A member of the RNA family "Bacterial large subunit ribosomal RNA" from Muribaculaceae bacterium Isolate-110, 449 nucleotides of a longer RNA.
A search with the family's covariance model found it, with a score of 2743 bits.

RNA sequence: CUCCCCGAAAUGCAUUUAGGUGCAGCCUCGGGGCACAGUACCGUGGAGGUAGAGCGACUGAUAGGAUGCGAGGGCUUCACCGCCUAUCAAGUCCUGACAAACUCCGAAUGCCACGGCACGGUCCCCGGGAGUGAGGGCGCGGGUGCUAAGGUCCGCGUCCGAGAGAGGAACAACUCAGACCACCGUCUAAGGCCCCCAAAUCCGGGCUAAGUUGAAGACAAUAACGAGGUGGGACCGCAAGGACAGCUAGGAUGUUGGCUUGGAAGCAGCCAUUCAUUUAAAGAGUGCGUAACAGCUCACUAGUCGAGUGGUCCCGCAUGGAUAAUAAUCGGGCAUAAGUCCGGUGCCGAAGACGUGGAAUCAUGCUUUGAGCAUGAUUGGUAGGGGAGCAUUCCGGUAGCCGUCGAAGGAAAGGCGCGAGCCUUUCUGGAGGUCCCGGAAAAGCAAAU
Numbered sequence: 001c002u003c004c005c006c007g008a009a010a011u012g013c014a015u016u017u018a019g020g021u022g023c024a025g026c027c028u029c030g031g032g033g034c035a036c037a038g039u040a041c042c043g044u045g046g047a048g049g050u051a052g053a054g055c056g057a058c059u060g061a062u063a064g065g066a067u068g069c070g071a072g073g074g075c076u077u078c079a080c081c082g083c084c085u086a087u088c089a090a091g092u093c094c095u096g097a098c099a100a101a102c103u104c105c106g107a108a109u110g111c112c113a114c115g116g117c118a119c120g121g122u123c124c125c126c127g128g129g130a131g132u133g134a135g136g137g138c139g140c141g142g143g144u145g146c147u148a149a150g151g152u153c154c155g156c157g158u159c160c161g162a163g164a165g166a167g168g169a170a171c172a173a174c175u176c177a178g179a180c181c182a183c184c185g186u187c188u189a190a191g192g193c194c195c196c197c198a199a200a201u202c203c204g205g206g207c208u209a210a211g212u213u214g215a216a217g218a219c220a221a222u223a224a225c226g227a228g229g230u231g232g233g234a235c236c237g238c239a240a241g242g243a244c245a246g247c248u249a250g251g252a253u254g255u256u257g258g259c260u261u262g263g264a265a266g267c268a269g270c271c272a273u274u275c276a277u278u279u280a281a282a283g284a285g286u287g288c289g290u291a292a293c294a295g296c297u298c299a300c301u302a303g304u305c306g307a308g309u310g311g312u313c314c315c316g317c318a319u320g321g322a323u324a325a326u327a328a329u330c331g332g333g334c335a336u337a338a339g340u341c342c343g344g345u346g347c348c349g350a351a352g353a354c355g356u357g358g359a360a361u362c363a364u365g366c367u368u369u370g371a372g373c374a375u376g377a378u379u380g381g382u383a384g385g386g387g388a389g390c391a392u393u394c395c396g397g398u399a400g401c402c403g404u405c406g407a408a409g410g411a412a413a414g415g416c417g418c419g420a421g422c423c424u425u426u427c428u429g430g431a432g433g434u435c436c437c438g439g440a441a442a443a444g445c446a447a448a449u
Stems, first nucleotide, its partner, number of pairs: 001389006011024005026131001027129007037122001038119002041116006052105001053103002059099002063095004070088002072085004135160010165176003180358004185354003191348003200345001202344006225320002229317010246304005252277003257271003278282001283298001287296002359379008390444001392441006400434003409428008